[Rfam]
RNA sequence: CAGGCGAUACCUUGGGGGUUCGCACUGCGCGAAAUUUUACAAGGGCUUAUAGCCCGCCAACAUCCCUCCGCUUGGAUCCUCCUUCGGGACCGAGACGGGAAA
Dot-bracket structure: (((((((..((.....)).)))).)))........................................((((((((.(((.......)))))))).)))....
RNA: pan motif